[Rfam]
RNA sequence: GAGCCAAAUUUGAAGUAGAGUAGAUUAGUAUCAGCUGACCCUACUAAUCCACUCUACUUCAAGUUUGUGCCC
Numbered sequence: 001g002a003g004c005c006a007a008a009u010u011u012g013a014a015g016u017a018g019a020g021u022a023g024a025u026u027a028g029u030a031u032c033a034g035c036u037g038a039c040c041c042u043a044c045u046a047a048u049c050c051a052c053u054c055u056a057c058u059u060c061a062a063g064u065u066u067g068u069g070c071c072c
Stems, first nucleotide, its partner, number of pairs: 001071001005067005011061011023049001025047006032037001